The record is a 297-nucleotide sequence from Sodalis sp. TME1, which matches "Soft rot Enterobacteriaceae Rev 39 5'UTR" in Rfam.
[Rfam]
Nucleotides: 297
Base pairs, nucleotide, nucleotide: 005033006032007031008030009029010028011027012026013024015022037075038074039073040072041071044068045067046066047065048064049059086255088253090250091249092248098243099242100241101240102238103236104235105234107232108231110120111119112118122142123141124140125139126138128137129136130135143162144161146159147158148157149156163194164193165191170187171186173184174183196229197228198227199226200225201224203223204222205221207219209218210217211216256284257283258282259281261279262278264273265272266271
Number, partner (000 for none) and nucleotide at each position: 001000a002000a003000u004000a005033g006032u007031u008030g009029u010028c011027a012026u013024g014000c015022u016000u017000a018000c019000a020000c021000u022015a023000a024013c025000u026012g027011u028010g029009a030008u031007a032006a033005c034000u035000u036000u037075g038074u039073a040072g041071g042000c043000a044068u045067u046066c047065a048064u049059u050000c051000g052000a053000u054000g055000u056000c057000a058000a059049a060000c061000a062000u063000a064048a065047u066046g067045a068044a069000a070000a071041c072040c073039u074038a075037u076000u077000u078000a079000u080000g081000a082000a083000a084000g085000c086255c087000g088253u089000u090250g091249u092248u093000c094000a095000a096000g097000u098243g099242a100241u101240u102238a103236g104235c105234c106000u107232a108231g109000u110120c111119g112118u113000g114000a115000u116000u117000a118112g119111c120110g121000u122142g123141g124140u125139g126138g127000u128137g129136a130135u131000u132000a133000u134000u135130a136129u137128c138126c139125c140124a141123c142122c143162g144161u145000g146159c147158g148157g149156g150000g151000c152000u153000g154000c155000a156149c157148u158147u159146g160000g161144a162143c163194g164193a165191a166000g167000a168000a169000a170187a171186g172000c173184u174183u175000a176000c177000u178000a179000a180000u181000c182000a183174a184173g185000c186171u187170u188000c189000a190000a191165u192000c193164u194163c195000a196229a197228g198227a199226a200225a201224a202000c203223c204222c205221c206000c207219g208000c209218a210217c211216c212000a213000a214000c215000u216211g217210g218209u219207c220000a221205g222204g223203g224201u225200u226199u227198u228197u229196u230000u231108u232107u233000u234105g235104g236103c237000a238102u239000c240101a241100a242099u243098c244000a245000a246000g247000c248092g249091a250090c251000a252000g253088g254000a255086g256284a257283a258282c259281a260000c261279u262278a263000a264273a265272u266271g267000a268000a269000a270000a271266u272265a273264u274000a275000g276000a277000a278262u279261a280000u281259u282258g283257u284256u285000c286000u287000g288000u289000c290000c291000c292000u293000g294000c295000g296000g297000c
Description
The family's RNA type in Rfam is cis-regulatory element. From the family's description: From bacteria cultured under starvation conditions.